[Rfam]
RNA sequence: UUUUCGUAUAAUUCCGGGGAUUGGCCCGGAAGUUUCUACGAGGUCACCGUAAUGAUCUGGCUACGAAAA
Numbered sequence: 001u002u003u004u005c006g007u008a009u010a011a012u013u014c015c016g017g018g019g020a021u022u023g024g025c026c027c028g029g030a031a032g033u034u035u036c037u038a039c040g041a042g043g044u045c046a047c048c049g050u051a052a053u054g055a056u057c058u059g060g061c062u063a064c065g066a067a068a069a
Stems, first nucleotide, its partner, number of pairs: 001069008012031007041058006
RNA: 2dG-II purine riboswitch aptamer